[Rfam]
RNA: Alphaproteobacteria transfer-messenger RNA
Organism: Thalassobius vesicularis
RNA sequence: GGGCUUUAAUUCCGUCGCGCGCCGCACUAUAUCUGGGUUGUCCUUCGGGACUAUGGGCAUAAACGCGCAUGUAAUAAACGGAUCGGACCCGGGGGCGGUACCCGGCGGCUCCACCAAAAUCCUUCGUUUGAGGAUCAUGGGGCCGAAACAGGAUCGACGAACGCGUAAAGAUGUAGCUUUGUCCCGGUGAGGUACCACCGUUAUCGGUCCGAAAAGUACAAUUGCAAACGACAAUCGUGCUCCGGUCGCAAUGGCUGCGUAAGCAGUCGGAGUUACCGAAAUCUAAGUCCUUGCGCCUAGCAGCGUAAGGCGGGGUUCGCAGGUACCUGGCAACAGAAACCUGCACU
Numbered sequence: 001g002g003g004c005u006u007u008a009a010u011u012c013c014g015u016c017g018c019g020c021g022c023c024g025c026a027c028u029a030u031a032u033c034u035g036g037g038u039u040g041u042c043c044u045u046c047g048g049g050a051c052u053a054u055g056g057g058c059a060u061a062a063a064c065g066c067g068c069a070u071g072u073a074a075u076a077a078a079c080g081g082a083u084c085g086g087a088c089c090c091g092g093g094g095g096c097g098g099u100a101c102c103c104g105g106c107g108g109c110u111c112c113a114c115c116a117a118a119a120u121c122c123u124u125c126g127u128u129u130g131a132g133g134a135u136c137a138u139g140g141g142g143c144c145g146a147a148a149c150a151g152g153a154u155c156g157a158c159g160a161a162c163g164c165g166u167a168a169a170g171a172u173g174u175a176g177c178u179u180u181g182u183c184c185c186g187g188u189g190a191g192g193u194a195c196c197a198c199c200g201u202u203a204u205c206g207g208u209c210c211g212a213a214a215a216g217u218a219c220a221a222u223u224g225c226a227a228a229c230g231a232c233a234a235u236c237g238u239g240c241u242c243c244g245g246u247c248g249c250a251a252u253g254g255c256u257g258c259g260u261a262a263g264c265a266g267u268c269g270g271a272g273u274u275a276c277c278g279a280a281a282u283c284u285a286a287g288u289c290c291u292u293g294c295g296c297c298u299a300g301c302a303g304c305g306u307a308a309g310g311c312g313g314g315g316u317u318c319g320c321a322g323g324u325a326c327c328u329g330g331c332a333a334c335a336g337a338a339a340c341c342u343g344c345a346c347u
Stems, first nucleotide, its partner, number of pairs: 040051004055184005065177002067174004079163002083160003089105005106145007185200004191210002194208003313328004319344006